[Rfam]
RNA sequence: GACAGCUUUAUUGAUGAUGUUACUUCUUGUUAAUGAAAGAAGACAUCAGAUAAAUCUGUGCU
Numbered sequence: 001g002a003c004a005g006c007u008u009u010a011u012u013g014a015u016g017a018u019g020u021u022a023c024u025u026c027u028u029g030u031u032a033a034u035g036a037a038a039g040a041a042g043a044c045a046u047c048a049g050a051u052a053a054a055u056c057u058g059u060g061c062u
Stems, first nucleotide, its partner, number of pairs: 002059004007054004015048006023042006
RNA: mir-723 microRNA precursor family
Organism: Electrophorus electricus